[Rfam]
RNA sequence: CUCUGGAGAGUGUCCAUUUCAGGUGGGCCACCAAAGGGGAAAACCUUUUUCAGGUAAACUUUCAGGUACCGGGACAGAG
Dot-bracket structure: (((((......((((.........)))).(((.(..(((....((.......))....))))..))).......)))))

This 79-nucleotide RNA from Bacillus sp. V5-8f belongs to the Rfam family "Glycine riboswitch aptamer". Rfam links the family to the GO term glycine biosynthetic process. The pairing is the family consensus, mapped onto this sequence. It scores 43 bits against the family's covariance model. Lineage of the source: Bacteria > Bacillati > Bacillota > Caryophanales > Bacillus.